[Rfam]
RNA sequence: ACGCCCCUGCCGGGAGCGCGCCAGGGGGCCGGGAAUCCCGGCGUCACCGCGUGCGCUGCCGGAUGGUCUUCUGAACCGAGGCGUCCUC
Numbered sequence: 001a002c003g004c005c006c007c008u009g010c011c012g013g014g015a016g017c018g019c020g021c022c023a024g025g026g027g028g029c030c031g032g033g034a035a036u037c038c039c040g041g042c043g044u045c046a047c048c049g050c051g052u053g054c055g056c057u058g059c060c061g062g063a064u065g066g067u068c069u070u071c072u073g074a075a076c077c078g079a080g081g082c083g084u085c086c087u088c
Stems, first nucleotide, its partner, number of pairs: 001084005010062004015057007024048002026044001028042005064078003

A member of the RNA family "dauA ncRNA motif" from Streptomyces viridochromogenes, 88 nucleotides long. The source organism's lineage runs through Bacteria, Bacillati, Kitasatosporales, Streptomycetaceae and Streptomyces. Rfam classes the family as a cis-regulatory element. Rfam's curators write: dauA ncRNA motif was reported as a strong cis regulatory motif candidate, with potential to be a cis regulatory riboswitch type, it have been identified in genomes of the genus Streptomyces.